[Rfam]
RNA sequence: CUCUUAUCAAGAGAGGCGGAGGGAAAAGGGCCCGAUGAAACCCGGCAACCAGUGACAGCACAAUGGUGCCAAUUCCUGCAGUAAAGUCUGCAAGAUAAGAG
Numbered sequence: 001c002u003c004u005u006a007u008c009a010a011g012a013g014a015g016g017c018g019g020a021g022g023g024a025a026a027a028g029g030g031c032c033c034g035a036u037g038a039a040a041c042c043c044g045g046c047a048a049c050c051a052g053u054g055a056c057a058g059c060a061c062a063a064u065g066g067u068g069c070c071a072a073u074u075c076c077u078g079c080a081g082u083a084a085a086g087u088c089u090g091c092a093a094g095a096u097a098a099g100a101g
Stems, first nucleotide, its partner, number of pairs: 001101008013043001015042002021033003028077003044070004049066002052061003074093001079090003
Rfam assigns this 101-nucleotide sequence from Clostridium oryzae to the family "SAM riboswitch aptamer (S box leader)". The family's consensus secondary structure is taken from published work. Rfam describes the family as follows. The SAM riboswitch is found upstream of a number of genes which code for proteins involved in methionine or cysteine biosynthesis in Gram-positive bacteria.